[Rfam]
RNA sequence: UGAGCGACUGUAAACAUCCUCGACUGGAAGCUGUGAAGCAGCAAGCAGGCUUUCAGUCGGAUGUUUGCAGCUGCCUA
Numbered sequence: 001u002g003a004g005c006g007a008c009u010g011u012a013a014a015c016a017u018c019c020u021c022g023a024c025u026g027g028a029a030g031c032u033g034u035g036a037a038g039c040a041g042c043a044a045g046c047a048g049g050c051u052u053u054c055a056g057u058c059g060g061a062u063g064u065u066u067g068c069a070g071c072u073g074c075c076u077a
Base pairs, nucleotide, nucleotide: 002076004074005073006072008070009069010068011067012066013065014064015063016062017061018060019059023057024056025055026054027053028052029051030050031049032048